[Rfam]
RNA sequence: CGGUAACUCCGAAUCCGUCACAGGAUAGGAGUAACGGCUGCUUGGCACAGCCAUCGGUACGCCUGUUCGACAAAUCCACGGGGCGAGUCGCCCCACAAGAACAGAUAGCACCGUAGACCCUAAUAUCCCAACGUGGGAAUCCUACGGCUUCAGCCGUGGGA
Numbered sequence: 001c002g003g004u005a006a007c008u009c010c011g012a013a014u015c016c017g018u019c020a021c022a023g024g025a026u027a028g029g030a031g032u033a034a035c036g037g038c039u040g041c042u043u044g045g046c047a048c049a050g051c052c053a054u055c056g057g058u059a060c061g062c063c064u065g066u067u068c069g070a071c072a073a074a075u076c077c078a079c080g081g082g083g084c085g086a087g088u089c090g091c092c093c094c095a096c097a098a099g100a101a102c103a104g105a106u107a108g109c110a111c112c113g114u115a116g117a118c119c120c121u122a123a124u125a126u127c128c129c130a131a132c133g134u135g136g137g138a139a140u141c142c143u144a145c146g147g148c149u150u151c152a153g154c155c156g157u158g159g160g161a
Stems, first nucleotide, its partner, number of pairs: 003035002007031004013026003036052005055113004060108001063104006080094005126138004140161009
Overview
The record is a 161-nucleotide sequence from Halorhabdus sp. CBA1104, which matches "Sense overlapping transcript RNA 0042 (sot)" in Rfam. Rfam describes the family as follows. It is associated with IS1341-type transposase (tnpB) genes, at the 3'-end in H. salinarum NRC-1. The family's consensus secondary structure was predicted with RNAfold. It scores 110 bits against the family's covariance model. The family's RNA type in Rfam is small RNA. A reference for the family is Gomes-Filho et al. (2015), "Sense overlapping transcripts in IS1341-type transposase genes are functional non-coding RNAs in archaea", RNA Biol.